RNA sequence: AAAGCAGGCUGCAAUUACAGUGCUUCAUUCUGUGGGAGUUCCUGCUGAGAGUAACUCUGUUAACGCUGUCUUCGGUUUCACCUAUACGGUGGUGAAACCGUUUGUUCUUAACAUGUACAAGU
Numbered sequence: 001a002a003a004g005c006a007g008g009c010u011g012c013a014a015u016u017a018c019a020g021u022g023c024u025u026c027a028u029u030c031u032g033u034g035g036g037a038g039u040u041c042c043u044g045c046u047g048a049g050a051g052u053a054a055c056u057c058u059g060u061u062a063a064c065g066c067u068g069u070c071u072u073c074g075g076u077u078u079c080a081c082c083u084a085u086a087c088g089g090u091g092g093u094g095a096a097a098c099c100g101u102u103u104g105u106u107c108u109u110a111a112c113a114u115g116u117a118c119a120a121g122u
Base pairs, nucleotide, nucleotide: 003046004045005044006043007042008041022039023038024037025036026035056115058113059112060111061110062109063108065106073100074099075098076097077096078095079094080093081092082091
Small nucleolar RNA SNORA69: a 122-nucleotide RNA from Fulmarus glacialis. U69 is a member of the H/ACA class of small nucleolar RNAs (snoRNAs) which act as guides in the the modification of uridines to pseudouridines. It scores 61 bits against the family's covariance model. Rfam 15.1 lists 808 matches to the family in 584 species. Rfam links the family to the GO terms nucleolus and RNA processing. By type it is an H/ACA-box small nucleolar RNA.